Shown here is a 609-nucleotide RNA, a member of the family "ROOL RNA".
The family's consensus secondary structure is taken from published work.
RNA sequence: UAUUUGAAUCAUGCUUAUGAUUAACUCGGUGAAUAAAGUGUGUCAGCACUCCGAGACGCACAGUAGUUCCCGCUGGAUUUACGAGGGAUACCUUUUAUUGUCCAGGCGGCAGUGAUGCAGUGAUGUAUUGCUGGGAGGCGGAAACUGCCAACGAAAAUGUGUGUUGCCAAGAGUUAUCGCUACAAAAAGCACGGAACUUUCGGGCGCAGCAAUAGACGCUCCUGUGGAGAAUAAUCCUCAAGGGUGCUGGUGUGGCAACCAGUACAACCGGAGGAAAUGCCAACAAUGCGCUCCUGUCUUGAUGUCGAAGAAACUCGACUAUAACGAAAGUCGCCGGUUAAAGUAGCCGUAGGACAGUUUUGGUGUUUGAUCUUUAAUACGAUAUGAUGAAAAAGAAAUUGUAUGAAACUAUCAAAUUUUCUGAACGAACGGUGAAAUUUGCGGGUAAACAAUCCCGCGCAGGAAUUGGCCUAAUACAGUUCGCUGUGUAAGGCUGGGGUAAGAAGUUAAAGGUCGCUCCUUGAAGCUCAGACUUAUCUCCCUGGUGGCUGAACAUUGUGAGAAGGUAAUGGAGGUAGAGCGAAGGCUCAAUGAUAGGUAUGAUUCAAG
Number, nucleotide and partner (000 for none) at each position: 001u000002a000003u000004u000005u000006g000007a000008a605009u000010c000011a000012u000013g000014c000015u598016u597017a000018u000019g000020a000021u000022u591023a000024a000025c055026u054027c053028g052029g051030u000031g000032a000033a000034u000035a000036a000037a050038g049039u048040g047041u046042g000043u000044c000045a000046g041047c040048a039049c038050u037051c029052c028053g027054a026055g025056a000057c163058g162059c161060a160061c159062a158063g000064u000065a000066g000067u000068u000069c000070c000071c106072g000073c105074u104075g103076g102077a000078u000079u000080u097081a096082c000083g094084a093085g092086g091087g000088a000089u000090a000091c086092c085093u084094u083095u000096u081097a080098u000099u000100g000101u000102c076103c075104a074105g073106g071107c133108g132109g131110c130111a129112g000113u000114g000115a128116u127117g126118c125119a124120g000121u000122g000123a000124u119125g118126u117127a116128u115129u111130g110131c109132u108133g107134g000135g000136a000137g149138g148139c147140g146141g145142a000143a000144a000145c141146u140147g139148c138149c137150a000151a000152c000153g000154a000155a000156a000157a000158u062159g061160u060161g059162u058163g057164u000165u000166g000167c000168c000169a000170a000171g000172a000173g000174u000175u569176a000177u000178c566179g000180c000181u000182a000183c000184a000185a557186a000187a000188a556189g550190c000191a000192c336193g335194g334195a000196a331197c330198u329199u328200u327201c326202g325203g292204g291205c290206g289207c288208a287209g000210c000211a000212a000213u000214a000215g000216a000217c000218g000219c229220u228221c227222c226223u000224g000225u000226g222227g221228a220229g219230a000231a000232u000233a000234a000235u275236c274237c273238u272239c271240a000241a000242g000243g000244g265245u264246g263247c262248u261249g260250g259251u000252g000253u282254g281255g280256c279257a000258a000259c250260c249261a248262g247263u246264a245265c244266a000267a000268c000269c000270g000271g239272a238273g237274g236275a235276a000277a000278u000279g256280c255281c254282a253283a000284c000285a000286a000287u208288g207289c206290g205291c204292u203293c000294c357295u356296g355297u354298c353299u000300u000301g000302a000303u000304g319305u318306c317307g316308a315309a000310g000311a000312a000313a000314c000315u308316c307317g306318a305319c304320u000321a000322u000323a000324a000325c202326g201327a200328a199329a198330g197331u196332c000333g000334c194335c193336g192337g000338u000339u000340a438341a000342a000343g000344u000345a000346g433347c432348c431349g430350u429351a000352g000353g298354a297355c296356a295357g294358u000359u000360u000361u000362g000363g000364u000365g000366u000367u000368u000369g000370a000371u000372c000373u000374u000375u000376a000377a000378u000379a000380c000381g000382a000383u000384a000385u000386g000387a000388u000389g000390a000391a000392a000393a000394a000395g000396a000397a000398a000399u000400u000401g000402u000403a000404u000405g000406a000407a000408a000409c000410u000411a000412u000413c000414a000415a000416a000417u000418u000419u000420u532421c531422u530423g529424a000425a000426c000427g000428a000429a350430c349431g348432g347433u346434g000435a000436a000437a000438u340439u000440u000441g000442c000443g000444g456445g455446u000447a000448a000449a000450c000451a000452a000453u000454c000455c445456c444457g000458c000459g000460c544461a543462g542463g494464a000465a000466u000467u000468g000469g000470c492471c000472u000473a000474a000475u000476a000477c000478a000479g000480u000481u000482c000483g000484c000485u000486g000487u000488g000489u000490a000491a000492g470493g000494c463495u000496g541497g540498g539499g538500u000501a000502a535503g534504a000505a000506g528507u000508u525509a000510a522511a521512g520513g519514u000515c000516g000517c000518u000519c513520c512521u511522u510523g000524a000525a508526g000527c000528u506529c423530a422531g421532a420533c000534u503535u502536a000537u000538c499539u498540c497541c496542c462543u461544g460545g000546u000547g000548g000549c000550u189551g000552a000553a000554c000555a000556u188557u185558g000559u000560g000561a000562g000563a000564a000565g000566g178567u000568a000569a175570u000571g000572g000573a000574g000575g000576u000577a000578g589579a588580g587581c586582g000583a000584a000585g000586g581587c580588u579589c578590a000591a022592u000593g000594a000595u000596a000597g016598g015599u000600a000601u000602g000603a000604u000605u008606c000607a000608a000609g000

Record summary:
About the family: Firmicutes, Fusobacteria (1 example), Tenericutes (1 example). The sequence is in the family's curated seed alignment.